A member of the RNA family "mir-282 microRNA precursor family" from Nasonia vitripennis, 88 nucleotides long. Lineage of the source: Eukaryota > Dicondylia > Chalcidoidea > Pteromalinae > Nasonia. The family's consensus secondary structure was predicted with RNAalifold. The family has 21 seed sequences and 136 matches in Rfam 15.1.

Nucleotides: 088
Stems, first nucleotide, its partner, number of pairs: 012076009027061004032056005
Number, partner (000 for none) and nucleotide at each position: 001000c002000g003000a004000g005000c006000g007000a008000c009000g010000u011000g012076a013075u014074u015073u016072a017071g018070c019069c020068u021000c022000u023000c024000c025000u026000a027061g028060g029059c030058u031000u032056u033055g034054u035053c036052u037000g038000u039000c040000a041000g042000u043000g044000a045000a046000a047000a048000a049000a050000c051000g052036a053035g054034a055033c056032a057000u058030a059029g060028c061027c062000u063000a064000g065000a066000a067000u068020a069019g070018g071017u072016u073015a074014g075013g076012u077000c078000g079000g080000g081000g082000c083000u084000c085000g086000u087000u088000c